[Rfam]
RNA sequence: UUUGGCCUGGCCUACUUUUCCAUGCAGGGAGCGUGGGCAAAGGUCAUC
Numbered sequence: 001u002u003u004g005g006c007c008u009g010g011c012c013u014a015c016u017u018u019u020c021c022a023u024g025c026a027g028g029g030a031g032c033g034u035g036g037g038c039a040a041a042g043g044u045c046a047u048c
Stems, first nucleotide, its partner, number of pairs: 006043003010038005018031004